[Rfam]
RNA sequence: UAAUCAAAACAAGAAGGGAUGAUGGGUGGACAAUGAUUAACUAAUCUUAUUUUUACCGUUUGAAAUCAAUAUUUCAAAUCAAAAAAUAGGAUUAGUCUGCCCAUUUUCUAUAUAUACGACACUGCUAUUUAUAAAAAAUAGCUUAUUUGAUCAUGCACAGGCACGGCUAAUCCUUCCAACACAUUUGGGAGGAUUUUUUU
Number, nucleotide and partner (000 for none) at each position: 001u000002a000003a000004u000005c000006a000007a000008a000009a000010c000011a000012a000013g000014a000015a000016g109017g108018g107019a106020u000021g000022a000023u103024g102025g101026g100027u000028g000029g097030a096031c095032a000033a000034u000035g000036a000037u000038u000039a000040a000041c000042u094043a093044a092045u091046c090047u089048u088049a087050u086051u085052u084053u083054u082055a000056c000057c000058g079059u078060u077061u076062g075063a074064a073065a072066u071067c000068a000069a000070u000071a066072u065073u064074u063075c062076a061077a060078a059079u058080c000081a000082a054083a053084a052085a051086a050087u049088a048089g047090g046091a045092u044093u043094a042095g031096u030097c029098u000099g000100c026101c025102c024103a023104u000105u000106u019107u018108c017109u016110a000111u000112a000113u000114a000115u000116a000117c149118g148119a147120c000121a000122c000123u000124g142125c141126u140127a139128u138129u137130u136131a000132u000133a000134a000135a000136a130137a129138a128139u127140a126141g125142c124143u000144u000145a000146u000147u119148u118149g117150a000151u000152c000153a000154u000155g000156c000157a000158c000159a000160g000161g000162c000163a000164c000165g000166g000167c000168u000169a195170a194171u193172c192173c191174u190175u189176c188177c187178a186179a185180c000181a000182c000183a000184u000185u179186u178187g177188g176189g175190a174191g173192g172193a171194u170195u169196u000197u000198u000199u000200u000
RNA: Bacillus sRNA ncr1575